Small nucleolar RNA SNORA81: a 179-nucleotide RNA sequence from Channa argus.
RNA sequence: CCCUUCUGCAUCAACAGAAGUCUGCUAUAAUUGUGUGAUCCAGUUUUCUGCUUCAUCCAAUAAUGCUAGCAGACUAUUGCAUGGAAGGAGACUAUUGUGCACUGCACUGAAAAUGAGAUGUGGUCGAACCUCUUUCUUAAUGUUCGUUGGCCUCUGUCUCAAAGUGCAGUGCCACAAUG
Numbered sequence: 001c002c003c004u005u006c007u008g009c010a011u012c013a014a015c016a017g018a019a020g021u022c023u024g025c026u027a028u029a030a031u032u033g034u035g036u037g038a039u040c041c042a043g044u045u046u047u048c049u050g051c052u053u054c055a056u057c058c059a060a061u062a063a064u065g066c067u068a069g070c071a072g073a074c075u076a077u078u079g080c081a082u083g084g085a086a087g088g089a090g091a092c093u094a095u096u097g098u099g100c101a102c103u104g105c106a107c108u109g110a111a112a113a114u115g116a117g118a119u120g121u122g123g124u125c126g127a128a129c130c131u132c133u134u135u136c137u138u139a140a141u142g143u144u145c146g147u148u149g150g151c152c153u154c155u156g157u158c159u160c161a162a163a164g165u166g167c168a169g170u171g172c173c174a175c176a177a178u179g
Stems, first nucleotide, its partner, number of pairs: 020074002023071005030064004036055002041050003099172008121150001123148001125146004

Its family is annotated with nucleolus and RNA processing in the Gene Ontology. A search with the family's covariance model found it, with a score of 81 bits. NCBI's taxonomy places the organism under Eukaryota, Gnathostomata, Actinopterygii, Ctenosquamata, Channa.